[Rfam]
RNA sequence: GCCAAAUGAUGUUUUUAUGUAGAUUGCAUUAGCACUCUGUGCAAAGAUGACUGUCUAUCUAUCACCCAUGACUGAUGGCU
Numbered sequence: 001g002c003c004a005a006a007u008g009a010u011g012u013u014u015u016u017a018u019g020u021a022g023a024u025u026g027c028a029u030u031a032g033c034a035c036u037c038u039g040u041g042c043a044a045a046g047a048u049g050a051c052u053g054u055c056u057a058u059c060u061a062u063c064a065c066c067c068a069u070g071a072c073u074g075a076u077g078g079c080u
Stems, first nucleotide, its partner, number of pairs: 001079004032042004

Small nucleolar RNA SNORD83: an 80-nucleotide RNA sequence from Lepisosteus oculatus. The source organism's lineage runs through Eukaryota, Opisthokonta, Bilateria, Semionotiformes and Lepisosteus. Rfam classes the family as a C/D-box small nucleolar RNA. On this family, see Jady and Kiss, Nucleic Acids Res 2000: "Characterisation of the U83 and U84 small nucleolar RNAs: two novel 2'-O-ribose methylation guide RNAs that lack complementarities to ribosomal RNAs". Pairs were carried over by alignment from the consensus structure, which was predicted with PFOLD. The family has 7 seed sequences and 1,393 matches in Rfam 15.1.